[Rfam]
RNA sequence: UCAAACAGCGUCGGAACGACGUAGAAUGCGGUCGAUCUUGUCUGGGAGGACGCGGUCUUCGGCGCGCAACAAGCGCAGCCCCGGACAAGUCCGGUGGAAGAUCCGGAUCGACCAUCUCGAAUGCGGGGCGCGAGCCCCGCAUUUUUUU
Numbered sequence: 001u002c003a004a005a006c007a008g009c010g011u012c013g014g015a016a017c018g019a020c021g022u023a024g025a026a027u028g029c030g031g032u033c034g035a036u037c038u039u040g041u042c043u044g045g046g047a048g049g050a051c052g053c054g055g056u057c058u059u060c061g062g063c064g065c066g067c068a069a070c071a072a073g074c075g076c077a078g079c080c081c082c083g084g085a086c087a088a089g090u091c092c093g094g095u096g097g098a099a100g101a102u103c104c105g106g107a108u109c110g111a112c113c114a115u116c117u118c119g120a121a122u123g124c125g126g127g128g129c130g131c132g133a134g135c136c137c138c139g140c141a142u143u144u145u146u147u148u
Stems, first nucleotide, its partner, number of pairs: 006024001008022004031112004040051004054103005061080003064076003081094003122141008